The record is an 82-nucleotide RNA from Plantactinospora soyae, which matches "Selenocysteine transfer RNA" in Rfam.
Rfam links the family to the GO term triplet codon-amino acid adaptor activity.
For this family Rfam cites "Eukaryotic selenocysteine tRNA has the 9/4 secondary structure" (Mizutani and Goto, FEBS Lett, 2000).
Its Rfam clan is "tRNA clan".
It scores 47 bits against the family's covariance model.

[Rfam]
RNA sequence: GGAAGGCGCCGCUCAGCGGUGGGCGACCGGUCUUGAAAACCGGGGUGCCGGCAACGGCAGGGGUUCGACUCCUCCGCCUUCC
Dot-bracket structure: ((((((((.((((((....)))))).(((((.......)))))..(((((....)))))((((.......))))))))))))